[Rfam]
RNA sequence: UUGUUCCUAGCCUAAUCUCUCAUUCUGCUCCCUGUGCUCAGUUCCAAACAAGCGCAGUCUGGGCAAGGACAACACAGCAUUCUCCCUCUCAGUUUAGGAGAGCGUCUAAGAAUAAGGGCUGGGCUCUUAAAGCCACGAGAGGACAAU
Dot-bracket structure: .(((((.(...(..............(((((.(((............))).).).)))....).).))))).............((((((.(.((..(((((((((((....))..)))...))))))..)).)..)))))).....
Background: Shown here is a 147-nucleotide RNA sequence from Microcebus murinus, a member of the family "Small Cajal body specific RNA 11". The match comes from Rfam's covariance-model search (75 bits). scaRNAs are a specific class of small nuclear RNAs which localise to the Cajal bodies and guide the modification of RNA polymerase II transcribed spliceosomal RNAs U1, U2, U4, U5 and U12. ACA57 belongs to the H/ACA box class of guide RNAs as it has the predicted hairpin-hinge-hairpin-tail structure, conserved H/ACA-box motifs and is found associated with GAR1. ACA57 is predicted to guide the pseudouridylation of the U5 spliceosomal RNA at position U43.